[Rfam]
RNA sequence: CUGACAACGGCGCAUGGGUGGACAUAGGUGUUGAGUGCCCAUUGCCCCUCAAGACCGCUCGGCGGUACGAAGUGGGGCAGCGCCUGAACGUCAG
Numbered sequence: 001c002u003g004a005c006a007a008c009g010g011c012g013c014a015u016g017g018g019u020g021g022a023c024a025u026a027g028g029u030g031u032u033g034a035g036u037g038c039c040c041a042u043u044g045c046c047c048c049u050c051a052a053g054a055c056c057g058c059u060c061g062g063c064g065g066u067a068c069g070a071a072g073u074g075g076g077g078c079a080g081c082g083c084c085u086g087a088a089c090g091u092c093a094g
Stems, first nucleotide, its partner, number of pairs: 001094005009084005015041004023035001025033003043079005054066005
The record is a 94-nucleotide RNA, which matches "L4-Archaeoglobi ribosomal protein leades" in Rfam. For this family Rfam cites "Discovery of 20 novel ribosomal leader candidates in bacteria and archaea" (Eckert and Weinberg, BMC Microbiol, 2020). Rfam's curators put it in the seed alignment.